RNA: Streptomyces sRNA 4677
RNA sequence: GGGUCCGGUGGGGCGCGGGCCUCCCUAAAGAACCGGGGGAAAGAACUCCCGCCCACCCACCCUCCCCGGCUUGGAGGGCCGCGUCACCCGUCCGAGUGACCGGCUUGCGGGUACGGGUCACGGACGGUUACGUUCGCCGCGACAACCGCAAACAGAUACGGCCCCCGGCCGGGACGGCAAUCCCGAACGAGGGCCUGACCAACCAGGAAGCAAACCCCUUCCCG
Numbered sequence: 001g002g003g004u005c006c007g008g009u010g011g012g013g014c015g016c017g018g019g020c021c022u023c024c025c026u027a028a029a030g031a032a033c034c035g036g037g038g039g040a041a042a043g044a045a046c047u048c049c050c051g052c053c054c055a056c057c058c059a060c061c062c063u064c065c066c067c068g069g070c071u072u073g074g075a076g077g078g079c080c081g082c083g084u085c086a087c088c089c090g091u092c093c094g095a096g097u098g099a100c101c102g103g104c105u106u107g108c109g110g111g112u113a114c115g116g117g118u119c120a121c122g123g124a125c126g127g128u129u130a131c132g133u134u135c136g137c138c139g140c141g142a143c144a145a146c147c148g149c150a151a152a153c154a155g156a157u158a159c160g161g162c163c164c165c166c167g168g169c170c171g172g173g174a175c176g177g178c179a180a181u182c183c184c185g186a187a188c189g190a191g192g193g194c195c196u197g198a199c200c201a202a203c204c205a206g207g208a209a210g211c212a213a214a215c216c217c218c219u220u221c222c223c224g
Stems, first nucleotide, its partner, number of pairs: 007203001009201002017070001018067001084099004089094001108136003160195005166189002171184004206222005